RNA sequence: GGAGGGGUGCCGGAGCGGCUGAACGGGGCGGUCUUGAAAAUCGCUAGGGCCCCGCGCUGGGCCCUCGUGGGUUCGAAUCCCACCCCCUCC
Numbered sequence: 001g002g003a004g005g006g007g008u009g010c011c012g013g014a015g016c017g018g019c020u021g022a023a024c025g026g027g028g029c030g031g032u033c034u035u036g037a038a039a040a041u042c043g044c045u046a047g048g049g050c051c052c053c054g055c056g057c058u059g060g061g062c063c064c065u066c067g068u069g070g071g072u073u074c075g076a077a078u079c080c081c082a083c084c085c086c087c088u089c090c
Base pairs, nucleotide, nucleotide: 001090002089003088004087005086006085007084011026013024016021027045028044029043030042031041032040047064048063049062050061051060068082069081070080071079